[Rfam]
RNA sequence: AGAUCAUAAGUUCAAGGUCACAGUAGAAGUGCUCAUGACUUGGCUGUAUCAGAUUUCAGUGAAUCUAUGAAUUCUGCU
Numbered sequence: 001a002g003a004u005c006a007u008a009a010g011u012u013c014a015a016g017g018u019c020a021c022a023g024u025a026g027a028a029g030u031g032c033u034c035a036u037g038a039c040u041u042g043g044c045u046g047u048a049u050c051a052g053a054u055u056u057c058a059g060u061g062a063a064u065c066u067a068u069g070a071a072u073u074c075u076g077c078u
Stems, first nucleotide, its partner, number of pairs: 013046002017044003022078007029041001031039001051066006
Mammalian CPEB3 ribozyme: a 78-nucleotide RNA sequence from Crocodylus porosus. Lineage of the source: Eukaryota > Metazoa > Tetrapoda > Amniota > Crocodylus. From the family's description: The mammalian CPEB3 ribozyme is a self cleaving RNA located in the second intron of the CPEB3 gene which belongs to a family of genes regulating messenger RNA polyadenylation. Its family is annotated with RNA nuclease activity in the Gene Ontology.